Nucleotides: 129
Stems, first nucleotide, its partner, number of pairs: 021043004026038004047070007076092006094110004099105001
Number, partner (000 for none) and nucleotide at each position: 001000u002000u003000g004000u005000u006000u007000a008000g009000a010000a011000c012000u013000c014000a015000g016000c017000u018000u019000a020000a021043c022042c023041c024040g025000u026038c027037a028036g029035c030000g031000c032000a033000a034000u035029g036028u037027u038026g039000c040024c041023g042022g043021g044000c045000g046000a047070c048069c049068u050067u051066c052065g053064c054000c055000a056000c057000g058000c059000c060000g061000g062000c063000a064053g065052c066051g067050a068049a069048g070047g071000u072000c073000g074000a075000a076092g077091g078090c079089a080088g081087a082000a083000c084000c085000a086000u087081u088080c089079u090078g091077c092076c093000g094110g095109g096108u097107c098000c099105u100000c101000u102000c103000c104000g105099g106000a107097g108096g109095c110094c111000a112000u113000a114000g115000g116000a117000g118000a119000a120000a121000a122000c123000a124000g125000u126000c127000a128000a129000u

The family of this 129-nucleotide sequence from Pseudomonas sp. HAR-UPW-AIA-41 is "rmf RNA". It is annotated as a cis-regulatory element. NCBI's taxonomy places the organism under Bacteria, Pseudomonadati, Pseudomonadota, Gammaproteobacteria, Pseudomonas.